This 371-nucleotide RNA from SAR116 cluster alpha proteobacterium HIMB100 belongs to the Rfam family "Alphaproteobacteria transfer-messenger RNA".
RNA sequence: AACUUUUAUUUACCCUCAUUAGCCUGUUAUACUCAAAAGGCCAGUUUCGGCUGGCUAUGACGAUAAACGUAAUGUGGAAUAAGCAGGGCGGACCCGGGGGCGGUACCCGGCGCCUCCACCAAAUAUCAGCAGGCAAAGUUAUGCAGGUUGACUUUUGGGGGCGAAAUAGGAUCGACGCAUGUGGUAAAGACAUUAUUUUCGUUCGGUAUGGUACCCGCCGUUAUCGGGCCAUGUAGUAGUUGCAAACGACAACACUGCUCCGGUUGCUAUCGCUGCUUAAUGCGGCAGGCGUAACCAUUUUAAAGUCCUGAUGGCUUGAGCUCUGUCAGGCGGGGUUUGGGGCUGCACCUGGCAACAGAAGCGGUCCCGCU
Numbered sequence: 001a002a003c004u005u006u007u008a009u010u011u012a013c014c015c016u017c018a019u020u021a022g023c024c025u026g027u028u029a030u031a032c033u034c035a036a037a038a039g040g041c042c043a044g045u046u047u048c049g050g051c052u053g054g055c056u057a058u059g060a061c062g063a064u065a066a067a068c069g070u071a072a073u074g075u076g077g078a079a080u081a082a083g084c085a086g087g088g089c090g091g092a093c094c095c096g097g098g099g100g101c102g103g104u105a106c107c108c109g110g111c112g113c114c115u116c117c118a119c120c121a122a123a124u125a126u127c128a129g130c131a132g133g134c135a136a137a138g139u140u141a142u143g144c145a146g147g148u149u150g151a152c153u154u155u156u157g158g159g160g161g162c163g164a165a166a167u168a169g170g171a172u173c174g175a176c177g178c179a180u181g182u183g184g185u186a187a188a189g190a191c192a193u194u195a196u197u198u199u200c201g202u203u204c205g206g207u208a209u210g211g212u213a214c215c216c217g218c219c220g221u222u223a224u225c226g227g228g229c230c231a232u233g234u235a236g237u238a239g240u241u242g243c244a245a246a247c248g249a250c251a252a253c254a255c256u257g258c259u260c261c262g263g264u265u266g267c268u269a270u271c272g273c274u275g276c277u278u279a280a281u282g283c284g285g286c287a288g289g290c291g292u293a294a295c296c297a298u299u300u301u302a303a304a305g306u307c308c309u310g311a312u313g314g315c316u317u318g319a320g321c322u323c324u325g326u327c328a329g330g331c332g333g334g335g336u337u338u339g340g341g342g343c344u345g346c347a348c349c350u351g352g353c354a355a356c357a358g359a360a361g362c363g364g365u366c367c368c369g370c371u
Base pairs, nucleotide, nucleotide: 040055041054042053043052044051059203060202061201062200063199069196070195071194072193073192074191075190084181085180088178089177090176094110095109096108097107098106111163112162113161114160115159116158117157204220205219206218207217209231210230211229214227215226333350334349335348336347339368340367341366342365343364344363
Lineage of the source: Bacteria > Pseudomonadati > Pseudomonadota > Alphaproteobacteria > Puniceispirillales (SeqCode). Clan: tRNA clan. It is annotated as a non-coding RNA gene. The family's consensus secondary structure is taken from published work. It scores 278 bits against the family's covariance model.